[Rfam]
RNA sequence: UCCGAUAAUGGCAAAUCCGGCAAAAGCCGGAGACGCAAAGCCAUGGGUCUGUCGCCGGUCACUGUACCGGCAUGAUUGCCAGGUUGCCGAAG
Dot-bracket structure: (.((......((...((((((....))))))..[))..((((.((((((........................))).])))))))..))..)
A member of the RNA family "c-di-GMP-I-GGC riboswitch aptamer" from Leptolinea tardivitalis, 92 nucleotides long. It scores 68 bits against the family's covariance model. NCBI's taxonomy places the organism under Bacteria, Bacillati, Anaerolineales, Anaerolineaceae, Leptolinea. The family's consensus secondary structure is taken from published work. For this family Rfam cites "Structural and biochemical determinants of ligand binding by the c-di-GMP riboswitch " (Smith et al., Biochemistry, 2010).